[Rfam]
RNA sequence: CCAGCUCUCUUUGCCUUUUGGCUUAGAUCAAGUGUAGUAUCUGUUCUUUUCAGUUUAAUCUCUGAAAGUGUUCUAAGGAACACAACAUUGAUUAAUCUUAUUUUUGUACCCUGCAGUCUGACCUCUGUGCUUGCGCAUGUUGGACUGCACAGUGUCAUCGGGCCUACACUACCCCCGAUCGACGCGAACCCCC
Numbered sequence: 001c002c003a004g005c006u007c008u009c010u011u012u013g014c015c016u017u018u019u020g021g022c023u024u025a026g027a028u029c030a031a032g033u034g035u036a037g038u039a040u041c042u043g044u045u046c047u048u049u050u051c052a053g054u055u056u057a058a059u060c061u062c063u064g065a066a067a068g069u070g071u072u073c074u075a076a077g078g079a080a081c082a083c084a085a086c087a088u089u090g091a092u093u094a095a096u097c098u099u100a101u102u103u104u105u106g107u108a109c110c111c112u113g114c115a116g117u118c119u120g121a122c123c124u125c126u127g128u129g130c131u132u133g134c135g136c137a138u139g140u141u142g143g144a145c146u147g148c149a150c151a152g153u154g155u156c157a158u159c160g161g162g163c164c165u166a167c168a169c170u171a172c173c174c175c176c177g178a179u180c181g182a183c184g185c186g187a188a189c190c191c192c193c
Stems, first nucleotide, its partner, number of pairs: 008027003013022003048067006068083006113148008126137004152185005157179006

U2 spliceosomal RNA: a 193-nucleotide RNA sequence from Aspergillus uvarum. The source organism's lineage runs through Eukaryota, Ascomycota, Eurotiales, Aspergillus and Aspergillus uvarum. A reference for the family is Thomas et al. (1990), "The spliceosomal snRNAs of Caenorhabditis elegans", Nucleic Acids Res. Its Rfam clan is "U2 clan". About the family: U2 is a small nuclear RNA (snRNA) component of the spliceosome (involved in pre-mRNA splicing). The family's consensus secondary structure is taken from published work.